[Rfam]
RNA sequence: UUCAAAUUUGGCAAUGAGGUCUGCCUUAAACCGUUCCAUUUGGAGCUAAUGACAUCUACUUUUAA
Number, nucleotide and partner (000 for none) at each position: 001u000002u000003c000004a000005a000006a000007u000008u000009u000010g025011g024012c023013a022014a000015u000016g056017a055018g000019g053020u052021c051022u013023g012024c011025c010026u000027u000028a000029a000030a000031c000032c000033g046034u045035u044036c043037c000038a000039u000040u000041u000042g000043g036044a035045g034046c033047u000048a000049a000050u000051g021052a020053c019054a000055u017056c016057u000058a000059c000060u000061u000062u000063u000064a000065a000
A member of the RNA family "Fluoride riboswitch aptamer (crcB RNA motif)" from Mariniflexile rhizosphaerae, 65 nucleotides long.
The organism belongs to Mariniflexile, within Bacteria.